[Rfam]
RNA sequence: GAUGCUUCACACCAGUUCUAUAUAAAAGCUAAAACUAAGUUUUGAUUAGUUGAUGCUUAUGUUAGUGAAGCGUAAAUCAUAUGUUCCCCUCGCUAUCCAGAGCUGCGUUUUGUGUUGUAUUUGGACGUCGGGGAACUACAUUC
Numbered sequence: 001g002a003u004g005c006u007u008c009a010c011a012c013c014a015g016u017u018c019u020a021u022a023u024a025a026a027a028g029c030u031a032a033a034a035c036u037a038a039g040u041u042u043u044g045a046u047u048a049g050u051u052g053a054u055g056c057u058u059a060u061g062u063u064a065g066u067g068a069a070g071c072g073u074a075a076a077u078c079a080u081a082u083g084u085u086c087c088c089c090u091c092g093c094u095a096u097c098c099a100g101a102g103c104u105g106c107g108u109u110u111u112g113u114g115u116u117g118u119a120u121u122u123g124g125a126c127g128u129c130g131g132g133g134a135a136c137u138a139c140a141u142u143c
Base pairs, nucleotide, nucleotide: 003072004071005070008067009066013065018061026058027057028056029055032051034050035049036048083136084135085134086133087132088131089130091127092126096125097124098123099122100121105115106114107113

Description:
Rfam assigns this 143-nucleotide RNA from Salix koriyanagi to the family "Small nucleolar RNA snoR136". Gene Ontology terms of the family: nucleolus and RNA processing. By type it is an H/ACA-box small nucleolar RNA. The literature on the family includes a 2009 paper in Nucleic Acids Res by Chen and Wu, "Mining small RNA sequencing data: a new approach to identify small nucleolar RNAs in Arabidopsis".